[Rfam]
RNA sequence: UUUCGCAGAGUGUUUGUUCUAACCCUAUCUGAGGGCGGCCAUCUGUACUUAUCGUUUACUGUUUUUUGGUCCCGGCUUUCAGUAAACUACAGGAGGCCAAUGGAAGUAGCGUCGGAUAUGUGCAUUAACCUUAAAAAAGCCGAGACAUUCACUCUGCCAUGCUCAGUGUCCUUCUAGGAACACCGUGAAUCUCACCGCCGUGGUCAGCUCGGCUGCCGCGAAGAGUUAGGUCUCUGCUGCUCCGGUGUUUCCAUGGGAGGACUGGACUAUGCGUUACUGAGCACAUUAAACAUGAGCUGGGCGAUUCGGUCAGACCUGCAGUGGUCUGACUCGAAAACCCGGCUCAAACAUUU
Numbered sequence: 001u002u003u004c005g006c007a008g009a010g011u012g013u014u015u016g017u018u019c020u021a022a023c024c025c026u027a028u029c030u031g032a033g034g035g036c037g038g039c040c041a042u043c044u045g046u047a048c049u050u051a052u053c054g055u056u057u058a059c060u061g062u063u064u065u066u067u068g069g070u071c072c073c074g075g076c077u078u079u080c081a082g083u084a085a086a087c088u089a090c091a092g093g094a095g096g097c098c099a100a101u102g103g104a105a106g107u108a109g110c111g112u113c114g115g116a117u118a119u120g121u122g123c124a125u126u127a128a129c130c131u132u133a134a135a136a137a138a139g140c141c142g143a144g145a146c147a148u149u150c151a152c153u154c155u156g157c158c159a160u161g162c163u164c165a166g167u168g169u170c171c172u173u174c175u176a177g178g179a180a181c182a183c184c185g186u187g188a189a190u191c192u193c194a195c196c197g198c199c200g201u202g203g204u205c206a207g208c209u210c211g212g213c214u215g216c217c218g219c220g221a222a223g224a225g226u227u228a229g230g231u232c233u234c235u236g237c238u239g240c241u242c243c244g245g246u247g248u249u250u251c252c253a254u255g256g257g258a259g260g261a262c263u264g265g266a267c268u269a270u271g272c273g274u275u276a277c278u279g280a281g282c283a284c285a286u287u288a289a290a291c292a293u294g295a296g297c298u299g300g301g302c303g304a305u306u307c308g309g310u311c312a313g314a315c316c317u318g319c320a321g322u323g324g325u326c327u328g329a330c331u332c333g334a335a336a337a338c339c340c341g342g343c344u345c346a347a348a349c350a351u352u353u
Base pairs, nucleotide, nucleotide: 003159005157006156007155008154009153010152011151012150038097039096040095042094043093054087055086056085057084058083059082060081061080072144074141075140076139077137078136079135162281163280164279165278166277167276168262169261170260171259172258173257174256175255176254180248181247182246183245184244185243199220200219201218202217203216205215206214207213208212222235223234224233225232294345295344296343297342299340300339301338309330310329311328313326314325315324316323
RNA: Vertebrate telomerase RNA
Organism: Gouania willdenowi